Shown here is a 61-nucleotide RNA sequence, a member of the family "RAGATH-18 RNA". Actinobacteria, Firmicutes, Fusobacteria, Thermotogae (1 example). Rfam classes the family as a small RNA. It is one of the family's seed sequences. The base pairs follow the family's consensus structure, which is taken from published work.
RNA sequence: ACUGUGGAGUGUCAAACAAACGUCGGUAGCUUUGGCGAAGACGGACACGUUGAAGCAGUAA
Number, nucleotide and partner (000 for none) at each position: 001a059002c058003u057004g056005u055006g000007g000008a000009g048010u047011g046012u045013c044014a000015a000016a000017c000018a000019a000020a000021c043022g042023u041024c000025g000026g000027u000028a000029g036030c035031u000032u000033u000034g000035g030036c029037g000038a000039a000040g000041a023042c022043g021044g013045a012046c011047a010048c009049g000050u000051u000052g000053a000054a000055g005056c004057a003058g002059u001060a000061a000